[Rfam]
RNA sequence: UGCUGUUAAUGAUGAUUUUUUAAAGUAAACAGAUGGGAAUCUCUCUGAGAAAGAAUGAAGAUUUUUUUAAAAACUGAAACAGUG
Numbered sequence: 001u002g003c004u005g006u007u008a009a010u011g012a013u014g015a016u017u018u019u020u021u022a023a024a025g026u027a028a029a030c031a032g033a034u035g036g037g038a039a040u041c042u043c044u045c046u047g048a049g050a051a052a053g054a055a056u057g058a059a060g061a062u063u064u065u066u067u068u069a070a071a072a073a074c075u076g077a078a079a080c081a082g083u084g
Stems, first nucleotide, its partner, number of pairs: 001084007